RNA sequence: AAAAAAAGGAGCAAUCGCCAAUUUCUUGUUCUAUCAAGAGGGUUGGCAUUGCUCCUAAA
Numbered sequence: 001a002a003a004a005a006a007a008g009g010a011g012c013a014a015u016c017g018c019c020a021a022u023u024u025c026u027u028g029u030u031c032u033a034u035c036a037a038g039a040g041g042g043u044u045g046g047c048a049u050u051g052c053u054c055c056u057a058a059a
Stems, first nucleotide, its partner, number of pairs: 007056009020043001023040006